RNA: Eukaryotic large subunit ribosomal RNA, nucleotides 1942 to 2429
Organism: Cyanidioschyzon merolae
RNA sequence: UAGAACAAUGUAGAUAAGGGAAGUCGGCAAAAUGGAUCCGUAACCUCGGGAAAAGGAUUGGCUCUAAGGGUUGGGCCGGGGGCGCCCGGCGCGCGGCCGCCUGCGGCGCCUGCGCCUAGCGAGCGAUCGCGGGGCGCGGGCGCUGCGGGUGUGCGCGCGGCGGGAGCGGGCGCGAGCCCGCGUGCCGCCGGCGGCGAACAACCGACUUAGAACUGGUACGGACAAGGGGAAUCCGACUGUUUAAUUAAAACAUAGCAUUGCGAUGGUCGGAAACGAUGCUGACGCAAUGUGAUUUCUGCCCAGUGCUCUGAAUGUCAAAGUGAAGAAAUUCAACCAAGCGCGGGUAAACGGCGGGAGUAACUAUGACUCUCUUAAGGUAGCCAAAUGCCUCGUCAUCUAAUUAGUGACGCGCAUGAAUGGAUCAACGAGAUUCCCACUGUCCCUAUCUACUAUCUAGCGAAACCACAGCCAAGGGAACGGGCUUGGCA
Numbered sequence: 001u002a003g004a005a006c007a008a009u010g011u012a013g014a015u016a017a018g019g020g021a022a023g024u025c026g027g028c029a030a031a032a033u034g035g036a037u038c039c040g041u042a043a044c045c046u047c048g049g050g051a052a053a054a055g056g057a058u059u060g061g062c063u064c065u066a067a068g069g070g071u072u073g074g075g076c077c078g079g080g081g082g083c084g085c086c087c088g089g090c091g092c093g094c095g096g097c098c099g100c101c102u103g104c105g106g107c108g109c110c111u112g113c114g115c116c117u118a119g120c121g122a123g124c125g126a127u128c129g130c131g132g133g134g135c136g137c138g139g140g141c142g143c144u145g146c147g148g149g150u151g152u153g154c155g156c157g158c159g160g161c162g163g164g165a166g167c168g169g170g171c172g173c174g175a176g177c178c179c180g181c182g183u184g185c186c187g188c189c190g191g192c193g194g195c196g197a198a199c200a201a202c203c204g205a206c207u208u209a210g211a212a213c214u215g216g217u218a219c220g221g222a223c224a225a226g227g228g229g230a231a232u233c234c235g236a237c238u239g240u241u242u243a244a245u246u247a248a249a250a251c252a253u254a255g256c257a258u259u260g261c262g263a264u265g266g267u268c269g270g271a272a273a274c275g276a277u278g279c280u281g282a283c284g285c286a287a288u289g290u291g292a293u294u295u296c297u298g299c300c301c302a303g304u305g306c307u308c309u310g311a312a313u314g315u316c317a318a319a320g321u322g323a324a325g326a327a328a329u330u331c332a333a334c335c336a337a338g339c340g341c342g343g344g345u346a347a348a349c350g351g352c353g354g355g356a357g358u359a360a361c362u363a364u365g366a367c368u369c370u371c372u373u374a375a376g377g378u379a380g381c382c383a384a385a386u387g388c389c390u391c392g393u394c395a396u397c398u399a400a401u402u403a404g405u406g407a408c409g410c411g412c413a414u415g416a417a418u419g420g421a422u423c424a425a426c427g428a429g430a431u432u433c434c435c436a437c438u439g440u441c442c443c444u445a446u447c448u449a450c451u452a453u454c455u456a457g458c459g460a461a462a463c464c465a466c467a468g469c470c471a472a473g474g475g476a477a478c479g480g481g482c483u484u485g486g487c488a
Stems, first nucleotide, its partner, number of pairs: 001456004010450007018442003035059005044049001060214002063211006069203005075192005081186003085164004090159001091156004098151020119130004215219001227435007234427002238252003255290008266277004294421003298352003303349002305345004310341001313340003321332004353371006372376001392408005469486005